[Rfam]
RNA: Bacterial RNase P class A
RNA sequence: CGAGUUGACCAGGCAGUCGCUGUGUUGAUUUCUCUGAUGUUCGCUUGCGAUCAUUAAGGGUGCAACGCGGAGGAAAGUCCGGGCUCCACAGGGUAGAGUGCCAGGUAACACCUGGGAGGCGAAAGCCUACGGCCAGUGCAGCAGAGAGAAGACCGCCGAUGGUUCGUUCGCGAACACAGGUAAGGGUGAAAGGGUGCGGUAAGAGCGCACCGCGCUGCUGGUAACAGUAGUGGCAAGGUAAACCCCACUCGGAGCAAGACCAAAUAGGUUUCCAUAUGGCGCGUCCCGCGUUGGGAACGGGUAGGUUGCUUGAGGCAAACGGCGACGUUUGUCCCAGAUGAAUGACUGUCCAAGACAGAACCCGGCUUAUCGGUCAACUCACCUA
Number, nucleotide and partner (000 for none) at each position: 001c000002g380003a379004g378005u377006u376007g375008a374009c373010c372011a370012g350013g349014c348015a347016g346017u345018c344019g000020c070021u069022g068023u067024g066025u065026u064027g063028a000029u000030u000031u000032c000033u000034c000035u000036g000037a000038u000039g000040u000041u000042c000043g000044c000045u000046u000047g000048c000049g000050a000051u000052c000053a000054u000055u000056a000057a000058g000059g000060g000061u000062g000063c027064a026065a025066c024067g023068c022069g021070g020071a000072g000073g000074a000075a368076a367077g366078u000079c365080c364081g363082g362083g361084c254085u253086c252087c251088a000089c000090a000091g287092g286093g285094u000095a000096g250097a249098g248099u247100g246101c115102c114103a113104g112105g111106u000107a000108a000109c000110a000111c105112c104113u103114g102115g101116g130117a128118g127119g126120c125121g000122a000123a000124a000125g120126c119127c118128u117129a000130c116131g245132g244133c000134c000135a000136g243137u242138g239139c238140a000141g000142c000143a000144g000145a000146g000147a000148g000149a000150a000151g000152a000153c185154c184155g181156c180157c179158g000159a000160u000161g000162g175163u174164u173165c172166g171167u000168u000169c000170g000171c166172g165173a164174a163175c162176a000177c000178a000179g157180g156181u155182a000183a000184g154185g153186g000187u000188g000189a000190a000191a000192g000193g211194g210195u209196g208197c207198g206199g000200u000201a000202a000203g000204a000205g000206c198207g197208c196209a195210c194211c193212g234213c232214g231215c230216u229217g228218c227219u226220g225221g000222u000223a000224a000225c220226a219227g218228u217229a216230g215231u214232g213233g000234c212235a000236a000237g000238g139239u138240a000241a000242a137243c136244c132245c131246c100247a099248c098249u097250c096251g087252g086253a085254g084255c000256a000257a000258g307259a306260c305261c304262a000263a000264a000265u000266a000267g000268g298269u297270u296271u295272c294273c293274a000275u000276a000277u000278g292279g291280c290281g289282c288283g000284u000285c093286c092287c091288g282289c281290g280291u279292u278293g273294g272295g271296a270297a269298c268299g000300g000301g000302u000303a000304g261305g260306u259307u258308g000309c000310u000311u000312g000313a000314g333315g332316c331317a330318a329319a328320c327321g326322g000323c000324g000325a000326c321327g320328u319329u318330u317331g316332u315333c314334c000335c000336a000337g000338a000339u000340g000341a000342a000343u000344g018345a017346c016347u015348g014349u013350c012351c000352a000353a000354g000355a000356c000357a000358g000359a000360a000361c083362c082363c081364g080365g079366c077367u076368u075369a000370u011371c000372g010373g009374u008375c007376a006377a005378c004379u003380c002381a000382c000383c000384u000385a000